The record is an 83-nucleotide RNA sequence from Bacillus sp. NRRL B-14911, which matches "c-di-GMP-I riboswitch aptamer" in Rfam. Lineage of the source: Bacteria > Bacillati > Bacilli > Bacillaceae > Bacillus. It is one of the family's seed sequences.
RNA sequence: UAUUGAAAAAGGCAAACUUAUUGAAAAAUAAGGACGCAAAGCCGCGAGUCUAAGGCGUAAGCUAUGAUAGUCGGGCUGCCAGG
Numbered sequence: 001u002a003u004u005g006a007a008a009a010a011g012g013c014a015a016a017c018u019u020a021u022u023g024a025a026a027a028a029u030a031a032g033g034a035c036g037c038a039a040a041g042c043c044g045c046g047a048g049u050c051u052a053a054g055g056c057g058u059a060a061g062c063u064a065u066g067a068u069a070g071u072c073g074g075g076c077u078g079c080c081a082g083g
Stems, first nucleotide, its partner, number of pairs: 012037002017032006040077004045073003048068003055062002